[Rfam]
RNA sequence: AAAACAUGGGAAGCCUGAUGCUUCCCGUGUAUGAUUGAACCCACAAAGCAGCCUGGCAACAUAUAACCGGGUUGAUUCGGGUUCAUUUUUUU
Dot-bracket structure: ......((((((((.....))))))))........(((((((....................................))))))).......